[Rfam]
RNA sequence: UUGGCUAUUAUAAAGAAUGCUGCAAUGAUUCUCCUAAUAGAUUCUAGUGGCUAUGCUUAUGGGAUAGAUUAGCAUUGCCAUGAUCUGAAGGGGGAGGAUUUGUUUGUGUCCUCCUUUGAAUGAAAUGGCUAAACAAACAACA
Number, nucleotide and partner (000 for none) at each position: 001u000002u000003g000004g000005c062006u061007a060008u000009u000010a000011u000012a000013a000014a000015g000016a000017a000018u000019g000020c050021u049022g048023c047024a000025a000026u000027g000028a000029u000030u000031c000032u000033c000034c000035u000036a000037a000038u000039a000040g000041a000042u000043u000044c000045u000046a000047g023048u022049g021050g020051c000052u000053a000054u000055g000056c000057u000058u000059a000060u007061g006062g005063g000064a000065u000066a000067g000068a000069u000070u000071a000072g000073c000074a000075u000076u000077g129078c128079c127080a126081u000082g000083a000084u000085c000086u000087g000088a000089a000090g000091g000092g000093g000094g000095a117096g000097g116098a115099u000100u000101u000102g000103u000104u000105u000106g000107u000108g000109u000110c000111c000112u000113c000114c000115u098116u097117u095118g000119a000120a000121u000122g000123a000124a000125a000126u080127g079128g078129c077130u000131a000132a000133a000134c000135a000136a000137a000138c000139a000140a000141c000142a000
RNA: Small nucleolar RNA SNORA29